[Rfam]
RNA sequence: CUUCCCUUUUUCUGCUACAGUUUCACAGUAACAUGAGCAGUUGUACAUAUAGGAUAAAAUAAUAUUAGGACAUUGUAAAUGGAGAUGAAGUCAUCAUUUCCAUCUCUUCUGCAUGGACUAGACAUUG
Numbered sequence: 001c002u003u004c005c006c007u008u009u010u011u012c013u014g015c016u017a018c019a020g021u022u023u024c025a026c027a028g029u030a031a032c033a034u035g036a037g038c039a040g041u042u043g044u045a046c047a048u049a050u051a052g053g054a055u056a057a058a059a060u061a062a063u064a065u066u067a068g069g070a071c072a073u074u075g076u077a078a079a080u081g082g083a084g085a086u087g088a089a090g091u092c093a094u095c096a097u098u099u100c101c102a103u104c105u106c107u108u109c110u111g112c113a114u115g116g117a118c119u120a121g122a123c124a125u126u127g
Base pairs, nucleotide, nucleotide: 003054004053005052008049012040013039014038015037016036021031022030065121066120067119068118071115072114074113075112076111077110082106083105084104085103086102087100088099089098090097091096
This 127-nucleotide sequence from Carlito syrichta belongs to the Rfam family "Small nucleolar RNA SNORA20". A search with the family's covariance model found it, with a score of 89 bits. Rfam describes the family as follows. ACA20 is a member of the H/ACA class of snoRNA that guide the sites of modification of uridines to pseudouridines. Gene Ontology terms of the family: RNA processing and nucleolus. Clan: SNORA20 clan.